[Rfam]
RNA: S15-Flavobacteria ribosomal protein leader
RNA sequence: UAUCUUUGCAUCCGCUAUUCCUAUGAGUGGAAUUGCUACAUAAUAAUUAUUUAACUAAAUAUUGGCAUG
Numbered sequence: 001u002a003u004c005u006u007u008g009c010a011u012c013c014g015c016u017a018u019u020c021c022u023a024u025g026a027g028u029g030g031a032a033u034u035g036c037u038a039c040a041u042a043a044u045a046a047u048u049a050u051u052u053a054a055c056u057a058a059a060u061a062u063u064g065g066c067a068u069g
Stems, first nucleotide, its partner, number of pairs: 014036002017033005